[Rfam]
Shown here is a 178-nucleotide RNA from Nakamurella antarctica, a member of the family "c-di-AMP riboswitch aptamer (ydaO/yuaA leader)". It scores 77 bits against the family's covariance model.

RNA sequence: CGCAGGUCGCCGCCGAAUUAACGUGUCGGGACGUUGAGCCGGGGAACCAAUUGUUAUCUGGGGUGAAUCCCUAUCUGAGGUUGCUGCGUCUUUGAGGCGUCGGUAUCCCGAGGUGGGGUAGGGCUACUUCCUGGCCCGAAUCCGUCAGCUAACUCGGUAGGCGGUCCGAGGAUGAGAG
Numbered sequence: 001c002g003c004a005g006g007u008c009g010c011c012g013c014c015g016a017a018u019u020a021a022c023g024u025g026u027c028g029g030g031a032c033g034u035u036g037a038g039c040c041g042g043g044g045a046a047c048c049a050a051u052u053g054u055u056a057u058c059u060g061g062g063g064u065g066a067a068u069c070c071c072u073a074u075c076u077g078a079g080g081u082u083g084c085u086g087c088g089u090c091u092u093u094g095a096g097g098c099g100u101c102g103g104u105a106u107c108c109c110g111a112g113g114u115g116g117g118g119u120a121g122g123g124c125u126a127c128u129u130c131c132u133g134g135c136c137c138g139a140a141u142c143c144g145u146c147a148g149c150u151a152a153c154u155c156g157g158u159a160g161g162c163g164g165u166c167c168g169a170g171g172a173u174g175a176g177a178g
Base pairs, nucleotide, nucleotide: 011163012162013161014160018037019036020035021034022033023032024031038158039157040156041155042154043153048060049059061143062142063141069118070117071116072115073114074113075112076111121137122136123135124134